[Rfam]
RNA sequence: UAAAACAAGGAUAAAAACACAGCUCCGGUUGGUAGUCCGGACGCGGUAAAAGCCGUCAGUAACCUGCCCCCUCUCGGGUUGUCCGUUCCUUGUAUGAUAGUU
Numbered sequence: 001u002a003a004a005a006c007a008a009g010g011a012u013a014a015a016a017a018c019a020c021a022g023c024u025c026c027g028g029u030u031g032g033u034a035g036u037c038c039g040g041a042c043g044c045g046g047u048a049a050a051a052g053c054c055g056u057c058a059g060u061a062a063c064c065u066g067c068c069c070c071c072u073c074u075c076g077g078g079u080u081g082u083c084c085g086u087u088c089c090u091u092g093u094a095u096g097a098u099a100g101u102u
Base pairs, nucleotide, nucleotide: 005093006092007091008090009089010088011087022042025040026039027038028037043056044055045054046053047052066079067078068077069076

The record is a 102-nucleotide RNA sequence from Lachnospiraceae bacterium MD329, which matches "azaaromatic riboswitch aptamer (yjdF RNA)" in Rfam.
It scores 86 bits against the family's covariance model.
Taxonomically the source falls in Lachnospiraceae (Bacteria, Bacillati, Clostridia, Lachnospirales).